[Rfam]
RNA sequence: GUCAGAGGGAAGCUCACCACUGAGGUCACAUGCAGGGUGCUUGUCACUCGGUGCCCAAUACCUCUGGGAAGGUCUGAGACAAGAGCCAUUAGCUGCCCUUGCAGGGCAUCGCCUGCUGCAGGUGGAUGAGUUACCAGCUAUGUUGGGCCCUGGGUGUGGGGCAAAUUGGGCAGGAGAAGCUAGAGACUACUCCCUAGUAGAUGCCUAGCCCCCUCCCAUGGGUUUGGGACAGACUCAUGGCUGGCAGUGCUGAGUUCAAUGGGAUGAGGUGAGACACCCCCCUCUGGUGCCUCAUAACCCAAUUCAGACUACUCUCCCUCUGAC
Numbered sequence: 001g002u003c004a005g006a007g008g009g010a011a012g013c014u015c016a017c018c019a020c021u022g023a024g025g026u027c028a029c030a031u032g033c034a035g036g037g038u039g040c041u042u043g044u045c046a047c048u049c050g051g052u053g054c055c056c057a058a059u060a061c062c063u064c065u066g067g068g069a070a071g072g073u074c075u076g077a078g079a080c081a082a083g084a085g086c087c088a089u090u091a092g093c094u095g096c097c098c099u100u101g102c103a104g105g106g107c108a109u110c111g112c113c114u115g116c117u118g119c120a121g122g123u124g125g126a127u128g129a130g131u132u133a134c135c136a137g138c139u140a141u142g143u144u145g146g147g148c149c150c151u152g153g154g155u156g157u158g159g160g161g162c163a164a165a166u167u168g169g170g171c172a173g174g175a176g177a178a179g180c181u182a183g184a185g186a187c188u189a190c191u192c193c194c195u196a197g198u199a200g201a202u203g204c205c206u207a208g209c210c211c212c213c214u215c216c217c218a219u220g221g222g223u224u225u226g227g228g229a230c231a232g233a234c235u236c237a238u239g240g241c242u243g244g245c246a247g248u249g250c251u252g253a254g255u256u257c258a259a260u261g262g263g264a265u266g267a268g269g270u271g272a273g274a275c276a277c278c279c280c281c282c283u284c285u286g287g288u289g290c291c292u293c294a295u296a297a298c299c300c301a302a303u304u305c306a307g308a309c310u311a312c313u314c315u316c317c318c319u320c321u322g323a324c
Stems, first nucleotide, its partner, number of pairs: 001324004008317003013268004017263002022064004035049005074307005084242004094108005109125006126238007147223003269295005275289004
A member of the RNA family "Nuclear RNase P" from Gopherus evgoodei, 324 nucleotides long. On this family, see Frank et al., RNA 2000: "Phylogenetic-comparative analysis of the eukaryal ribonuclease P RNA". Lineage of the source: Eukaryota > Metazoa > Deuterostomia > Tetrapoda > Gopherus.